Shown here is a 179-nucleotide sequence from Sporosarcina pasteurii, a member of the family "Lysine riboswitch aptamer". Pairs were carried over by alignment from the consensus structure, which is taken from published work. NCBI's taxonomy places the organism under Bacteria, Bacillota, Bacilli, Caryophanaceae, Sporosarcina.

RNA sequence: AGUAAGGAUAGAGGCGCAAAAACCAUUAGUACACAACCUGAGGAUAAUGAGGUCCGAUGAUGAUUGUGGAAAGGGGGAUUUGCCGAAGUGGAGAGAGACUCAUUUUUCUCGAAGCUGGUUCUGGGUUGAAUAAGCUCAGGAUUGUCAUAUAGGAGACUAUAUGGAGGGCUAUCUUUUUG
Number, nucleotide and partner (000 for none) at each position: 001a000002g000003u000004a000005a000006g174007g173008a172009u171010a170011g169012a000013g000014g000015c000016g083017c082018a081019a080020a079021a000022a000023c076024c075025a000026u000027u000028a000029g000030u000031a000032c068033a067034c066035a065036a064037c000038c062039u000040g000041a000042g000043g000044a000045u000046a000047a000048u000049g000050a000051g000052g000053u000054c000055c000056g000057a000058u000059g000060a000061u000062g038063a000064u036065u035066g034067u033068g032069g000070a000071a000072a000073g000074g000075g024076g023077g000078a000079u020080u019081u018082g017083c016084c000085g000086a000087a116088g115089u114090g000091g000092a000093g110094a109095g108096a107097g106098a105099c000100u000101c000102a000103u000104u000105u098106u097107u096108c095109u094110c093111g000112a000113a000114g089115c088116u087117g143118g142119u141120u140121c139122u138123g137124g136125g135126u134127u133128g000129a000130a000131u000132a000133a127134g126135c125136u124137c123138a122139g121140g120141a119142u118143u117144g000145u164146c163147a162148u161149a160150u159151a158152g000153g000154a000155g000156a000157c000158u151159a150160u149161a148162u147163g146164g145165a000166g000167g000168g000169c011170u010171a009172u008173c007174u006175u000176u000177u000178u000179g000
The match comes from Rfam's covariance-model search (121 bits).